Description
Rfam assigns this 109-nucleotide sequence from Angiostrongylus costaricensis to the family "SL2 RNA". This family represents SL2 RNA. SL2 RNA is involved in trans splicing in lower eukaryotes. Lineage of the source: Eukaryota > Opisthokonta > Bilateria > Metastrongylidae > Angiostrongylus. Pairs were carried over by alignment from the consensus structure, which is taken from published work. By type it is a non-coding RNA gene.

RNA sequence: GGUUAUAACCCAGUAUCUCAAGGUACUACGGGUGUCUGGCCCUCCACUCGUGGUCGUGCCACAAACCUAAAUUUUUGGAAUGCCACUCCGGGGUAUCCGGUGAGGCGAU
Numbered sequence: 001g002g003u004u005a006u007a008a009c010c011c012a013g014u015a016u017c018u019c020a021a022g023g024u025a026c027u028a029c030g031g032g033u034g035u036c037u038g039g040c041c042c043u044c045c046a047c048u049c050g051u052g053g054u055c056g057u058g059c060c061a062c063a064a065a066c067c068u069a070a071a072u073u074u075u076u077g078g079a080a081u082g083c084c085a086c087u088c089c090g091g092g093g094u095a096u097c098c099g100g101u102g103a104g105g106c107g108a109u
Stems, first nucleotide, its partner, number of pairs: 008035001009032002013029002016025001018023001037061004041056001044053002084107001086105002089102002092098002